Shown here is a 164-nucleotide RNA sequence from Araneus ventricosus, a member of the family "U1 spliceosomal RNA".
The family's consensus secondary structure is taken from published work.
From the family's description: U1 is a small nuclear RNA (snRNA) component of the spliceosome (involved in pre-mRNA splicing).
The match comes from Rfam's covariance-model search (120 bits).

[Rfam]
RNA sequence: AUACUUACUUGGCGUUGGAGAUGCCUUGAUCAAGAAGGAGGCUCUCCCGGUCGGAGGCUGGCCAUUGCACUUCGGCUAGCUGACAACCGCCACUACCACAAAGUGUGGUUGGCUGGGGCGCGUAAUUUUUGAGUGAUCGGGGGCUGCGUUCGCGCCGCUCCCAU
Numbered sequence: 001a002u003a004c005u006u007a008c009u010u011g012g013c014g015u016u017g018g019a020g021a022u023g024c025c026u027u028g029a030u031c032a033a034g035a036a037g038g039a040g041g042c043u044c045u046c047c048c049g050g051u052c053g054g055a056g057g058c059u060g061g062c063c064a065u066u067g068c069a070c071u072u073c074g075g076c077u078a079g080c081u082g083a084c085a086a087c088c089g090c091c092a093c094u095a096c097c098a099c100a101a102a103g104u105g106u107g108g109u110u111g112g113c114u115g116g117g118g119c120g121c122g123u124a125a126u127u128u129u130u131g132a133g134u135g136a137u138c139g140g141g142g143g144c145u146g147c148g149u150u151c152g153c154g155c156c157g158c159u160c161c162c163a164u
Base pairs, nucleotide, nucleotide: 012121013120014119015118017047018046019045020044021043023042024041025040026039027038049088050087051086054084056081057080058079060077061076062075063074090116091115092114093112095109097107098106137163139161140160141159143158146155147154148153